[Rfam]
RNA: Guanidine-II riboswitch aptamer (mini-ykkC)
Organism: Pseudaminobacter soli
RNA sequence: CGCGCGGGACGACCCGCGCCUCUGAAUACCAUUCCGGGACGGCCCGG
Numbered sequence: 001c002g003c004g005c006g007g008g009a010c011g012a013c014c015c016g017c018g019c020c021u022c023u024g025a026a027u028a029c030c031a032u033u034c035c036g037g038g039a040c041g042g043c044c045c046g047g
Stems, first nucleotide, its partner, number of pairs: 002019007034047005